[Rfam]
RNA sequence: GUUGGAUUCGGGGCCGUAGCACUGUCUGAGAGGUUUACAUUUCUCACAGUGAACCGGUCUCUUUUUCAGC
Number, nucleotide and partner (000 for none) at each position: 001g070002u069003u068004g067005g066006a000007u000008u000009c000010g061011g060012g059013g058014c057015c056016g055017u000018a000019g000020c051021a050022c049023u048024g047025u046026c000027u000028g045029a044030g043031a000032g000033g000034u000035u000036u000037a000038c000039a000040u000041u000042u000043c030044u029045c028046a025047c024048a023049g022050u021051g020052a000053a000054c000055c016056g015057g014058u013059c012060u011061c010062u000063u000064u000065u000066u005067c004068a003069g002070c001

A member of the RNA family "mir-128 microRNA precursor family" from Mus musculus, 70 nucleotides long. Rfam links the family to the GO terms miRNA-mediated post-transcriptional gene silencing and RISC complex. Taxonomically the source falls in Mus (Eukaryota, Gnathostomata, Glires, Myomorpha). The sequence is in the family's curated seed alignment. Pairs were carried over by alignment from the consensus structure, which was predicted with RNAalifold.